About this RNA
A member of the RNA family "c-di-AMP riboswitch aptamer (ydaO/yuaA leader)" from Ammoniphilus sp. CFH 90114, 142 nucleotides long. The base pairs follow the family's consensus structure. NCBI's taxonomy places the organism under Bacteria, Bacillati, Bacillota, Caryophanales, Ammoniphilus.
RNA sequence: ACAUGCUAAUCGCUUAAUCUCCUUAAGGAGAGCGGGGGAACCAUCGUGAUGGCUGCCAUCACAGGGGUGAAUCUCUUUUGAGUAGGGCUACUCUCAUGCCCGAAUCCGUCAGCUAACCUCGUCAGCGUUAGAGAGAGGCAUC
Numbered sequence: 001a002c003a004u005g006c007u008a009a010u011c012g013c014u015u016a017a018u019c020u021c022c023u024u025a026a027g028g029a030g031a032g033c034g035g036g037g038g039a040a041c042c043a044u045c046g047u048g049a050u051g052g053c054u055g056c057c058a059u060c061a062c063a064g065g066g067g068u069g070a071a072u073c074u075c076u077u078u079u080g081a082g083u084a085g086g087g088c089u090a091c092u093c094u095c096a097u098g099c100c101c102g103a104a105u106c107c108g109u110c111a112g113c114u115a116a117c118c119u120c121g122u123c124a125g126c127g128u129u130a131g132a133g134a135g136a137g138g139c140a141u142c
Stems, first nucleotide, its partner, number of pairs: 011127004018031003032122006042064001065107003073082003085101004